Rfam assigns this 196-nucleotide RNA from bacterium HR32 to the family "glmS glucosamine-6-phosphate activated ribozyme aptamer". The base pairs follow the family's consensus structure, which is taken from published work. This entry contains a glucosamine-6-phosphate activated ribozyme that is found in the mRNA for GlmS. GlmS is an enzyme that uses fructose-6-phosphate and glutamine to generate glucosamine-6-phosphate. The ribozyme catalyses self cleavage of the glmS mRNA that is thought to regulate GlmS activity. It scores 50 bits against the family's covariance model. Rfam classes the family as a riboswitch.

RNA sequence: AGGUGGGUCGGAGCGCCAGGACCCGCAGCGUUUUUGCGGGUUGACGAGGAGGGGGAUCUCGACGGGAGGCUUUGCCUCCUGCUCGGCGGGUGACCCCAGGCCCGGCCGGCGGGCCUCCGGAAGCCCAUCCGGUAAGCAAAAGGCAGCUGACAAAGCCCGGGGGUGACCCCGGGACAAAGGGCUGCUGGCCGGUACG
Dot-bracket structure: ...................((((((((.......))))))))........((((....((((....................)))).......))))............................................(((((((.......(((((((....)))))))......)))))))..........